The record is a 554-nucleotide part of an RNA from Archaeoglobus fulgidus, which matches "Archaeal large subunit ribosomal RNA" in Rfam.
RNA sequence: CGAAUAUCCCGGCCGGUGGAUGGCUCGGCUCGGGCGCCGACGAAGGGCGUGCCAAGCUGCGAAAAGCCCGGGGGAGGCGCAAGGAGCCUUAGAACCCGGGAUUCCCGAAUGGGAUAUCCUGUCCCUUCGGGGACGCUCCCUUACGGGAGCGGGAACGCGGGGAAAGGAAACAUCUGUGUACCCGCAGGAAAAGAAAGCAAACGCGAUGCCGUGAGUAGGGGCGACCGAAAGCGGCACAGCCCAAACCGAACAUCCGGGGGUAACUCCGGAUGGAUGUGGUGUUGUAGGACCCUGCCUAAUGCCGUGGAACGAAGCCGAAGUGGUCUGGAACGGCCCGCCGUAGAGGGUGAUAGCCCCGUAGGCGUAAGUUCCACGGUUACAAGGCGGGGUAUCCUGAGUACCGUGGGUUGGAAUUCUCGCGGGAAGCUGGGGGUCAUCAACCCCCAAGGCUAAAUACGUCCCGAGUCCGAUAGCGCAAUAGUAGGGUGACCGAAAGCUGAAAAGAACCCCGAGAAGGGGAGUGAAAAGAGCCUGAAAUCGGCCGGGGAUAGUGA
Numbered sequence: 001c002g003a004a005u006a007u008c009c010c011g012g013c014c015g016g017u018g019g020a021u022g023g024c025u026c027g028g029c030u031c032g033g034g035c036g037c038c039g040a041c042g043a044a045g046g047g048c049g050u051g052c053c054a055a056g057c058u059g060c061g062a063a064a065a066g067c068c069c070g071g072g073g074g075a076g077g078c079g080c081a082a083g084g085a086g087c088c089u090u091a092g093a094a095c096c097c098g099g100g101a102u103u104c105c106c107g108a109a110u111g112g113g114a115u116a117u118c119c120u121g122u123c124c125c126u127u128c129g130g131g132g133a134c135g136c137u138c139c140c141u142u143a144c145g146g147g148a149g150c151g152g153g154a155a156c157g158c159g160g161g162g163a164a165a166g167g168a169a170a171c172a173u174c175u176g177u178g179u180a181c182c183c184g185c186a187g188g189a190a191a192a193g194a195a196a197g198c199a200a201a202c203g204c205g206a207u208g209c210c211g212u213g214a215g216u217a218g219g220g221g222c223g224a225c226c227g228a229a230a231g232c233g234g235c236a237c238a239g240c241c242c243a244a245a246c247c248g249a250a251c252a253u254c255c256g257g258g259g260g261u262a263a264c265u266c267c268g269g270a271u272g273g274a275u276g277u278g279g280u281g282u283u284g285u286a287g288g289a290c291c292c293u294g295c296c297u298a299a300u301g302c303c304g305u306g307g308a309a310c311g312a313a314g315c316c317g318a319a320g321u322g323g324u325c326u327g328g329a330a331c332g333g334c335c336c337g338c339c340g341u342a343g344a345g346g347g348u349g350a351u352a353g354c355c356c357c358g359u360a361g362g363c364g365u366a367a368g369u370u371c372c373a374c375g376g377u378u379a380c381a382a383g384g385c386g387g388g389g390u391a392u393c394c395u396g397a398g399u400a401c402c403g404u405g406g407g408u409u410g411g412a413a414u415u416c417u418c419g420c421g422g423g424a425a426g427c428u429g430g431g432g433g434u435c436a437u438c439a440a441c442c443c444c445c446a447a448g449g450c451u452a453a454a455u456a457c458g459u460c461c462c463g464a465g466u467c468c469g470a471u472a473g474c475g476c477a478a479u480a481g482u483a484g485g486g487u488g489a490c491c492g493a494a495a496g497c498u499g500a501a502a503a504g505a506a507c508c509c510c511g512a513g514a515a516g517g518g519g520a521g522u523g524a525a526a527a528g529a530g531c532c533u534g535a536a537a538u539c540g541g542c543c544g545g546g547g548a549u550a551g552u553g554a
Stems, first nucleotide, its partner, number of pairs: 007547010022532001023497002027468002029465006035458002045106003048061003067100006076088003111120003136149005156187001157185005167174002197204002208235005218226002238451004246279003256267004290389004300379002303376001314363003320336001322335004339343001345357003401422007429445005484491002
Source information: Rfam links the family to the GO terms structural constituent of ribosome and ribosome.